[Rfam]
RNA sequence: CUGCAUGUGAAUGUCGGCUCCUCAUUCCUCUGCAAGACGAAAUCUAUAACAUGCUAGAAUAAUAAAGGAGUUCUCAGGGCUGGCAAUGUUACAGUAACCGUUGAGUAGUAACUGUUUCUCCUACAUUU
Numbered sequence: 001c002u003g004c005a006u007g008u009g010a011a012u013g014u015c016g017g018c019u020c021c022u023c024a025u026u027c028c029u030c031u032g033c034a035a036g037a038c039g040a041a042a043u044c045u046a047u048a049a050c051a052u053g054c055u056a057g058a059a060u061a062a063u064a065a066a067g068g069a070g071u072u073c074u075c076a077g078g079g080c081u082g083g084c085a086a087u088g089u090u091a092c093a094g095u096a097a098c099c100g101u102u103g104a105g106u107a108g109u110a111a112c113u114g115u116u117u118c119u120c121c122u123a124c125a126u127u128u
Base pairs, nucleotide, nucleotide: 003054004053005052006051007050008049014040015039016038018036019035021032067121068120069119070118079109080108084103085102086101087100088099090097